[Rfam]
A member of the RNA family "Small nucleolar RNA SNORA1" from Amazona guildingii, 148 nucleotides long. A search with the family's covariance model found it, with a score of 76 bits. Gene Ontology terms of the family: nucleolus and RNA processing. It is annotated as an H/ACA-box small nucleolar RNA. Lineage of the source: Eukaryota > Craniata > Archelosauria > Psittacidae > Amazona. Rfam's curators write: ACA1 is a member of the H/ACA class of snoRNA that guide the sites of modification of uridines to pseudouridines.
RNA sequence: UCCCUCAUAACUUCUGAAGGGGUAAGUGUUCACUCAGGCUGAUUGACACUGUGUGUCUGAAUUGAAGAAUGUGGCUAGAAAAGGAACAGGUUGUGCUUUCCUCACUGCAUAGUUAGUUGCAGUGGUGACAAUGAGACCUGUAACAGGU
Numbered sequence: 001u002c003c004c005u006c007a008u009a010a011c012u013u014c015u016g017a018a019g020g021g022g023u024a025a026g027u028g029u030u031c032a033c034u035c036a037g038g039c040u041g042a043u044u045g046a047c048a049c050u051g052u053g054u055g056u057c058u059g060a061a062u063u064g065a066a067g068a069a070u071g072u073g074g075c076u077a078g079a080a081a082a083g084g085a086a087c088a089g090g091u092u093g094u095g096c097u098u099u100c101c102u103c104a105c106u107g108c109a110u111a112g113u114u115a116g117u118u119g120c121a122g123u124g125g126u127g128a129c130a131a132u133g134a135g136a137c138c139u140g141u142a143a144c145a146g147g148u
Stems, first nucleotide, its partner, number of pairs: 003074002006071003021058001022056003086141005100127001102125004